Rfam assigns this 276-nucleotide RNA from Sciurus carolinensis to the family "Mason-Pfizer monkey virus packaging signal". Rfam links the family to the GO term viral genome packaging. Taxonomically the source falls in Sciurus (Eukaryota, Gnathostomata, Euteleostomi, Euarchontoglires). This family represents a group of sequences that are related to the Mason-Pfizer monkey virus (MPMV) packaging signal. The packaging signal is located in the 5' UTR and is required for specific RNA encapsidation.
RNA sequence: UGGCACCCAACGUGGGGCCUGGACACAGGGGAAUUGGCGAGGGAAGAGGCGUUUAAUCGGUCCACGAAACGAAGUGGAAGUUAGUUCAAGAAAGAUCGCCACGUGAACCUGCCGCAUCGCUCUUAAAGGUACAGUAAUGCCUACUUAUGGGACAAGAAUUAAGUAGGCAUAAAAGUUUUGUUAAGCAAUUAAAAGAAGCCUUAAAGACACGGGGAAUAAAAGUUAAAAGUAAUGAGCUUUUUAAGUGUUUUGACCUUAUCAAGGACACCUGCUCAU
Number, nucleotide and partner (000 for none) at each position: 001u000002g000003g000004c000005a000006c031007c030008c029009a000010a000011c000012g026013u025014g024015g000016g000017g000018c000019c000020u000021g000022g000023a000024c014025a013026c012027a000028g000029g008030g007031g006032a000033a000034u000035u000036g000037g000038c046039g000040a000041g000042g000043g000044a000045a000046g038047a000048g000049g000050c000051g000052u000053u000054u000055a000056a000057u000058c000059g000060g000061u000062c000063c000064a000065c000066g000067a000068a000069a000070c000071g000072a000073a000074g000075u000076g000077g000078a000079a000080g000081u000082u000083a000084g000085u000086u129087c128088a000089a000090g124091a000092a000093a000094g000095a121096u000097c119098g000099c000100c000101a000102c114103g113104u000105g000106a000107a000108c000109c000110u000111g000112c000113c103114g102115c000116a000117u000118c000119g097120c000121u095122c000123u000124u090125a000126a000127a000128g087129g086130u000131a000132c000133a000134g000135u155136a000137a000138u152139g000140c151141c150142u149143a148144c000145u000146u000147a000148u143149g142150g141151g140152a138153c000154a000155a135156g000157a000158a000159u000160u203161a202162a201163g199164u198165a000166g000167g000168c000169a000170u000171a000172a000173a000174a000175g000176u000177u000178u000179u000180g000181u000182u000183a000184a000185g000186c000187a000188a000189u000190u000191a000192a000193a000194a000195g000196a000197a000198g164199c163200c000201u162202u161203a160204a000205a000206g000207a000208c000209a000210c252211g251212g250213g249214g248215a000216a246217u245218a000219a000220a238221a000222g000223u235224u234225a233226a000227a000228a000229g000230u000231a000232a000233u225234g224235a223236g000237c000238u220239u000240u000241u000242u000243a000244a000245g217246u216247g000248u214249u213250u212251u211252g210253a000254c000255c000256u000257u000258a000259u000260c000261a276262a000263g274264g273265a000266c271267a000268c000269c000270u000271g266272c000273u264274c263275a000276u261